[Rfam]
RNA: SAM-I/IV (S-adenosyl methionine) riboswitch aptamer
RNA sequence: ACUUUGCAUCAAGAACGCAAUGCGUACCAACCGACAUACUCGAUGCACGGUGGUUUAGAAUGCGGAGAAUAACUCUCAAAUUUUCGAGUAAUC
Number, nucleotide and partner (000 for none) at each position: 001a000002c000003u000004u000005u000006g063007c062008a061009u060010c000011a000012a000013g000014a000015a025016c024017g023018c022019a000020a000021u000022g018023c017024g016025u015026a054027c053028c052029a000030a000031c050032c049033g048034a000035c045036a044037u000038a089039c088040u087041c086042g085043a000044u036045g035046c000047a000048c033049g032050g031051u000052g028053g027054u026055u000056u000057a000058g000059a000060a009061u008062g007063c006064g000065g077066a076067g075068a074069a000070u000071a000072a000073c000074u068075c067076u066077c065078a000079a000080a000081u000082u000083u000084u000085c042086g041087a040088g039089u038090a000091a000092u000093c000